[Rfam]
RNA sequence: AUGGACGGACAAGGUUCCUGCCUCCACGCGGCUCCGUCCGGGCAACGAGUUCGAGAAGCUUGCUUCCCACGAACUCGGCAAAAGGGAACCA
Dot-bracket structure: ..(((((((.....[.[[[(((.[[....))))))))))]]....((((((((.(((......)))...)))))))).....]]]].....
Rfam assigns this 91-nucleotide sequence from Rodent deltavirus to the family "Hepatitis delta virus ribozyme". Pairs were carried over by alignment from the consensus structure, which is taken from published work. Taxonomically the source falls in Deltavirus (Viruses, Ribozyviria, Kolmioviridae).